[Rfam]
RNA: Iron response element II
Organism: Orthonyx spaldingii
RNA sequence: UUAAUAUCUGCUGCAGUGCCAGCAAUGUUGG
Numbered sequence: 001u002u003a004a005u006a007u008c009u010g011c012u013g014c015a016g017u018g019c020c021a022g023c024a025a026u027g028u029u030g031g
Stems, first nucleotide, its partner, number of pairs: 001031007009024005014018001